RNA: mir-87 microRNA precursor family
RNA sequence: UUCCGGCCGCCUGAUACUUUCGUCUCAACCUCGCUUCUCUCAUUGUCGUAGGUGAGCAAAGUUUCAGGUGUGCCGGAAC
Numbered sequence: 001u002u003c004c005g006g007c008c009g010c011c012u013g014a015u016a017c018u019u020u021c022g023u024c025u026c027a028a029c030c031u032c033g034c035u036u037c038u039c040u041c042a043u044u045g046u047c048g049u050a051g052g053u054g055a056g057c058a059a060a061g062u063u064u065c066a067g068g069u070g071u072g073c074c075g076g077a078a079c
Base pairs, nucleotide, nucleotide: 002077003076004075005074006073007072008070009069010068011067012066013065014064016062017061018060019059020058024056025055026054027053029052030051031050